[Rfam]
RNA sequence: AAUGAAGGACAGUGAAAAGCUUGUAUAAGUUCAUGAUUGGAUGAGCGUGUCUACCAACUGCCGUAACAGUUGACUACAAGUUCUGGGAUAAGGAAC
Numbered sequence: 001a002a003u004g005a006a007g008g009a010c011a012g013u014g015a016a017a018a019g020c021u022u023g024u025a026u027a028a029g030u031u032c033a034u035g036a037u038u039g040g041a042u043g044a045g046c047g048u049g050u051c052u053a054c055c056a057a058c059u060g061c062c063g064u065a066a067c068a069g070u071u072g073a074c075u076a077c078a079a080g081u082u083c084u085g086g087g088a089u090a091a092g093g094a095a096c
Stems, first nucleotide, its partner, number of pairs: 018082008029046006055072006
This 96-nucleotide RNA from Sporofaciens musculi belongs to the Rfam family "Purine riboswitch aptamer". The match comes from Rfam's covariance-model search (54 bits). Pairs were carried over by alignment from the consensus structure, which is taken from published work. Gene Ontology term of the family: purine nucleobase biosynthetic process. The organism belongs to Sporofaciens, within Bacteria.